[Rfam]
Shown here is a 194-nucleotide RNA sequence from Pantoea alhagi, a member of the family "Lysine riboswitch aptamer".
RNA sequence: CAAGCCAGAAGAGGCGCGUCGCCCAGGCAGUGUGUCAGAGGAGCCGUAUCCGGUGAAGACACAUCAGGGGGAGCGACGCCGAGGCAAUAUCUCCACGGCAGAGAUGUUGUCGACUGCAGAGGCUGAAUCCUCUGGGUUGUCACCAGGCGCGUGCGACAGUCGGACGCGCCGCAAGGUGGGGCGCUUCUGGGUGA
Dot-bracket structure: .....((((((....(((((((.(.....(((((((.....................)))))))......).)))))))...(((((((((((.......)))))))))))((((.((((((......)))))))))).(((((..............................)))))....)))))).....
Pairs were carried over by alignment from the consensus structure, which is taken from published work. Lineage of the source: Bacteria > Pseudomonadati > Pseudomonadota > Gammaproteobacteria > Pantoea.